[Rfam]
RNA sequence: AGCGGACUGCCGUGUUGGUGACAGCCUUUCUCUAGUGCUCUGAUCUGACUCUCUGUCGACUUGGGGCGACUGUCGUGACGGUGCCGUAGACCGGCCCAGCAGCCGGAAACGAAUCCCCACUUUGUUACCCCUUCUGGUUCAUCCAGGUCGAUCACUGGGGCUCGCACGGCACGGCGGUUCACCC
Number, nucleotide and partner (000 for none) at each position: 001a000002g182003c000004g180005g179006a178007c177008u176009g175010c174011c173012g172013u171014g170015u169016u000017g000018g167019u166020g000021a000022c000023a000024g000025c000026c000027u000028u000029u000030c000031u000032c000033u000034a000035g000036u154037g153038c000039u151040c000041u150042g149043a148044u147045c146046u145047g000048a000049c000050u000051c000052u000053c000054u000055g000056u000057c000058g000059a000060c000061u000062u000063g131064g130065g129066g000067c000068g126069a125070c124071u000072g122073u000074c000075g120076u119077g118078a000079c000080g115081g114082u000083g000084c000085c000086g110087u109088a000089g000090a000091c106092c105093g104094g103095c102096c000097c000098a000099g000100c000101a000102g095103c094104c093105g092106g091107a000108a000109a087110c086111g000112a000113a000114u081115c080116c000117c000118c077119a076120c075121u000122u072123u000124g070125u069126u068127a000128c000129c065130c064131c063132u000133u000134c000135u000136g000137g000138u000139u000140c000141a000142u000143c000144c000145a046146g045147g044148u043149c042150g041151a039152u000153c037154a036155c000156u000157g000158g000159g000160g000161c000162u000163c000164g000165c000166a019167c018168g000169g015170c014171a013172c012173g011174g010175c009176g008177g007178u006179u005180c004181a000182c002183c000184c000
The family of this 184-nucleotide RNA sequence from Synechococcus sp. RS9917 is "6S / SsrS RNA". The base pairs follow the family's consensus structure, which is taken from published work.